[Rfam]
RNA sequence: CUCUGUGUCUCUGAGGAGACAGACACAGGGCAGAAGGAG
Number, nucleotide and partner (000 for none) at each position: 001c030002u029003c028004u027005g026006u000007g000008u023009c022010u021011c000012u000013g000014a000015g000016g000017a000018g000019a000020c000021a010022g009023a008024c000025a000026c005027a004028g003029g002030g001031c000032a000033g000034a000035a000036g000037g000038a000039g000
The record is a 39-nucleotide RNA from Diceros bicornis, which matches "L31-Firmicutes ribosomal protein leader" in Rfam. The family's consensus secondary structure is taken from published work. The literature on the family includes a 2020 paper in BMC Microbiol by Eckert and Weinberg, "Discovery of 20 novel ribosomal leader candidates in bacteria and archaea". The source organism's lineage runs through Eukaryota, Eumetazoa, Craniata, Theria and Diceros bicornis. The family is grouped with related families in Rfam's "Ribosomal Protein L31 Leader clan".